The record is a 145-nucleotide sequence from Sporosarcina pasteurii, which matches "Ribosomal protein L20 leader" in Rfam. NCBI's taxonomy places the organism under Bacteria, Bacillati, Bacilli, Caryophanaceae, Sporosarcina. By type it is a cis-regulatory leader. About the family: This family is a putative r-protein leader autoregulatory structure found in B. subtilis and other low-GC Gram-positive bacteria. The match comes from Rfam's covariance-model search (59 bits).

[Rfam]
RNA sequence: UGGUAUAAGAAGGAGCUACCCGCUUCUCACCUGAUUGACGCGUAAACGUUGUUGGCAGGUCAACACAUGAAUGACUUUAUCGUACAUUUGUACGUAUUCAUACGCGGGUAGACAUUUUCUUAAAUGUCUACCCGUUUUUUAUUGA
Dot-bracket structure: ..........((((((.....)))))).(((.....(((((......)).)))....)))..............................................((((((((((......)))))))))).............
Overview:
The base pairs follow the family's consensus structure, which was predicted with CMfinder.